[Rfam]
RNA sequence: UCAACUAGGUGGUUAAGAGGGAAGCGAAAGCUCUCCCUAGUACGGCGAGAACCGUGCGACAUCGUCAAAUUGCGGGGAAUUCCUAAAGCUUUGAGUACCGCGGCUCUCCGUAAGGGGCAGUGCAGCAACAGGGUAACGACCUCGUGGAUGGUAAUAACCUCAAAGAUGGAACAAUGGAUUAUCCGCAGCCAAGUUCCUAAGCGGAGGUUUGGAUCCGAGUGAAUCCAGACACCGACGGAAUGCAGUUCAACGACCAAACGGCGAUGGGUUACAAGUGGUGGUCAUCCUACACUUGUGGCUUAAGAUAUGGUCUAAGCCUAGCUCGAAAGGGUUGG
Number, nucleotide and partner (000 for none) at each position: 001u000002c009003a000004a000005c000006u000007a000008g000009g002010u000011g000012g000013u000014u000015a000016a000017g000018a032019g031020g000021g000022a000023a000024g000025c000026g000027a000028a000029a000030g000031c019032u018033c000034u000035c000036c000037c000038u000039a000040g000041u000042a000043c000044g000045g000046c000047g000048a000049g000050a000051a000052c000053c000054g000055u000056g000057c000058g000059a000060c266061a265062u264063c263064g262065u000066c260067a000068a000069a000070u000071u187072g186073c185074g184075g183076g182077g000078a000079a000080u000081u178082c177083c176084u000085a000086a000087a000088g000089c000090u000091u000092u000093g000094a000095g000096u000097a000098c000099c000100g000101c000102g000103g000104c000105u000106c000107u000108c000109c000110g000111u000112a000113a000114g000115g000116g000117g000118c000119a000120g000121u000122g000123c000124a000125g000126c000127a000128a000129c000130a000131g000132g000133g000134u000135a000136a000137c000138g000139a000140c000141c000142u000143c000144g000145u000146g000147g000148a000149u000150g000151g000152u000153a000154a000155u000156a000157a000158c000159c000160u000161c000162a000163a000164a000165g000166a000167u000168g000169g000170a000171a000172c000173a000174a000175u000176g083177g082178a081179u000180u000181a000182u076183c075184c074185g073186c072187a071188g246189c245190c000191a000192a000193g241194u240195u239196c238197c000198u000199a000200a000201g000202c000203g000204g000205a000206g000207g000208u000209u000210u000211g000212g000213a000214u000215c000216c000217g000218a000219g000220u000221g000222a000223a000224u000225c000226c000227a000228g000229a000230c000231a000232c000233c000234g000235a000236c000237g000238g196239a195240a194241u193242g000243c000244a000245g189246u188247u000248c000249a000250a313251c000252g312253a311254c310255c309256a308257a000258a000259c000260g066261g000262c064263g063264a062265u061266g060267g000268g299269u298270u297271a296272c295273a294274a293275g292276u291277g000278g000279u000280g000281g000282u000283c000284a000285u000286c000287c000288u000289a000290c000291a276292c275293u274294u273295g272296u271297g270298g269299c268300u000301u000302a000303a000304g000305a000306u000307a000308u256309g255310g254311u253312c252313u250314a000315a000316g000317c000318c000319u000320a333321g332322c331323u330324c329325g000326a000327a000328a000329g324330g323331g322332u321333u320334g000335g000
Group I catalytic intron: a 335-nucleotide sequence from Pseudocercospora eumusae.
The literature on the family includes a 1990 paper in Annu Rev Biochem by Cech, "Self-splicing of group I introns".
Pairs were carried over by alignment from the consensus structure, which is taken from published work.
Lineage of the source: Eukaryota > Opisthokonta > saccharomyceta > Pezizomycotina > Pseudocercospora.
Rfam describes the family as follows. Group I catalytic introns are large self-splicing ribozymes.